The record is a 69-nucleotide sequence from Bombyx mori, which matches "mir-2833 microRNA precursor family" in Rfam.
Lineage of the source: Eukaryota > Allotriocarida > Amphiesmenoptera > Bombycidae > Bombyx.
Gene Ontology terms of the family: miRNA-mediated post-transcriptional gene silencing and RISC complex.
RNA sequence: AAUUCGCGGUAAACAGUGGAAACUGGUCCUCAUAUGUUGAGAGAUUGGAAAUGUACUUUUUAGUGAAUA
Numbered sequence: 001a002a003u004u005c006g007c008g009g010u011a012a013a014c015a016g017u018g019g020a021a022a023c024u025g026g027u028c029c030u031c032a033u034a035u036g037u038u039g040a041g042a043g044a045u046u047g048g049a050a051a052u053g054u055a056c057u058u059u060u061u062a063g064u065g066a067a068u069a
Base pairs, nucleotide, nucleotide: 002068003067004066005065006064007063010062011061012060013059015057016056017055018054020052023048024047025046026045027044028043029041030040031039032038